[Rfam]
RNA: Alphaproteobacterial sRNA BjrC1505
RNA sequence: CGGGUGUUAAGCACUCAUUAAGCUUUACAGCCGAUUACUACGGCUAUCCAGUUAUCUGGAUUCUUACCGAGUGGUUGGAGCCACUUUGUUUGACGCCUCCCUGUUUAACUCCUGAGAGCCGCCUUAUCCGCGGCUCUUUUUUU
Numbered sequence: 001c002g003g004g005u006g007u008u009a010a011g012c013a014c015u016c017a018u019u020a021a022g023c024u025u026u027a028c029a030g031c032c033g034a035u036u037a038c039u040a041c042g043g044c045u046a047u048c049c050a051g052u053u054a055u056c057u058g059g060a061u062u063c064u065u066a067c068c069g070a071g072u073g074g075u076u077g078g079a080g081c082c083a084c085u086u087u088g089u090u091u092g093a094c095g096c097c098u099c100c101c102u103g104u105u106u107a108a109c110u111c112c113u114g115a116g117a118g119c120c121g122c123c124u125u126a127u128c129c130g131c132g133g134c135u136c137u138u139u140u141u142u143u
Stems, first nucleotide, its partner, number of pairs: 001042002004039001005013002019034001022031003046061004069086006092105004114138009